[Rfam]
RNA sequence: GGAAGUGUGUGUCUUCUGUGAUGGCACGUAGCUGAACAUUGAUCGAUUUAACGAUAUCGCUAACGGUAUCUGUUUAUUCAGAUCUGCUCAGUGACAAUUCCGUCACAAUUUGUUUCCCAGUAAUUCUGCCUGGUUGACAUUGCUGCGGCAAACAGGUUCGGUCGGCUUUCCGCUGCCAUUGUUCGACGACGGGUCGGGCAAUAGACGCACGGUUAUGCAACUUAGCACUUCGCCCACUCCGCCUCGCGAAUUUCGAUCCGUUAAUCUGCACGCCCCCUCAAGGGGCGUGUGGUGGGUUGAAAUGCGUAUAGGUGUUUGGGGCCGGGCGUGGUGCUAAUGCUGAAGCUGACGACAGUUGCCCAAGUCAGCCAUUUUCAAAAUUUCUUGGUUAAGUAACUUUGUAGCUUAGCUUCGGAUUUUCGUAAUAAAUUUGCUGUUCAGAACACUUCCAUUGACGUGGCAUUGCCGAGCAAUUUGCCCAUUUUUUGC
Numbered sequence: 001g002g003a004a005g006u007g008u009g010u011g012u013c014u015u016c017u018g019u020g021a022u023g024g025c026a027c028g029u030a031g032c033u034g035a036a037c038a039u040u041g042a043u044c045g046a047u048u049u050a051a052c053g054a055u056a057u058c059g060c061u062a063a064c065g066g067u068a069u070c071u072g073u074u075u076a077u078u079c080a081g082a083u084c085u086g087c088u089c090a091g092u093g094a095c096a097a098u099u100c101c102g103u104c105a106c107a108a109u110u111u112g113u114u115u116c117c118c119a120g121u122a123a124u125u126c127u128g129c130c131u132g133g134u135u136g137a138c139a140u141u142g143c144u145g146c147g148g149c150a151a152a153c154a155g156g157u158u159c160g161g162u163c164g165g166c167u168u169u170c171c172g173c174u175g176c177c178a179u180u181g182u183u184c185g186a187c188g189a190c191g192g193g194u195c196g197g198g199c200a201a202u203a204g205a206c207g208c209a210c211g212g213u214u215a216u217g218c219a220a221c222u223u224a225g226c227a228c229u230u231c232g233c234c235c236a237c238u239c240c241g242c243c244u245c246g247c248g249a250a251u252u253u254c255g256a257u258c259c260g261u262u263a264a265u266c267u268g269c270a271c272g273c274c275c276c277c278u279c280a281a282g283g284g285g286c287g288u289g290u291g292g293u294g295g296g297u298u299g300a301a302a303u304g305c306g307u308a309u310a311g312g313u314g315u316u317u318g319g320g321g322c323c324g325g326g327c328g329u330g331g332u333g334c335u336a337a338u339g340c341u342g343a344a345g346c347u348g349a350c351g352a353c354a355g356u357u358g359c360c361c362a363a364g365u366c367a368g369c370c371a372u373u374u375u376c377a378a379a380a381u382u383u384c385u386u387g388g389u390u391a392a393g394u395a396a397c398u399u400u401g402u403a404g405c406u407u408a409g410c411u412u413c414g415g416a417u418u419u420u421c422g423u424a425a426u427a428a429a430u431u432u433g434c435u436g437u438u439c440a441g442a443a444c445a446c447u448u449c450c451a452u453u454g455a456c457g458u459g460g461c462a463u464u465g466c467c468g469a470g471c472a473a474u475u476u477g478c479c480c481a482u483u484u485u486u487u488g489c
Base pairs, nucleotide, nucleotide: 001450002449003448004447005446006445007444008443018106019105020104021103022102032091033090034089037086038085041084042083043082044081045079046078048076051073052072053071459479460478461477462474463473464472465471466470
Record summary:
Arthropod 7SK RNA: a 489-nucleotide RNA from Scaptodrosophila lebanonensis. It is annotated as a non-coding RNA gene. NCBI's taxonomy places the organism under Eukaryota, Eumetazoa, Aparaglossata, Muscomorpha, Scaptodrosophila. Rfam 15.1 lists 229 matches to the family in 137 species.